Shown here is a 91-nucleotide RNA sequence from Paenibacillus sp. OAS669, a member of the family "c-di-GMP-I riboswitch aptamer". Pairs were carried over by alignment from the consensus structure, which is taken from published work. Gene Ontology term of the family: cyclic-di-GMP binding. On this family, see Weinberg et al., Nucleic Acids Res 2007: "Identification of 22 candidate structured RNAs in bacteria using the CMfinder comparative genomics pipeline".
RNA sequence: CACCGAUAAAGGCAAAUUCAGCGAAAGCUGGAGACGCAAAGCUAUAGGGCCUUCCCUGGUCAAACUACCAGGAUGGCAGCCAGUUACCGAA
Numbered sequence: 001c002a003c004c005g006a007u008a009a010a011g012g013c014a015a016a017u018u019c020a021g022c023g024a025a026a027g028c029u030g031g032a033g034a035c036g037c038a039a040a041g042c043u044a045u046a047g048g049g050c051c052u053u054c055c056c057u058g059g060u061c062a063a064a065c066u067a068c069c070a071g072g073a074u075g076g077c078a079g080c081c082a083g084u085u086a087c088c089g090a091a
Base pairs, nucleotide, nucleotide: 012037013036017032018031019030020029021028022027040085041084042083043082047081048080049077050076051075056071057070058069059068
Lineage of the source: Bacteria > Bacillati > Caryophanales > Paenibacillaceae > Paenibacillus. A search with the family's covariance model found it, with a score of 75 bits.